RNA: mir-252 microRNA precursor family
RNA sequence: AGAGAUUCUUAAGUAGUUGUGCCGUAGGUCGUCGUUAAUAGUGAAUCGACCUACACACGGCUCCUUAAGACUUUUU
Dot-bracket structure: (((((.(..((((.(((((....(((((((.................)))))))...))))).))))..).)))))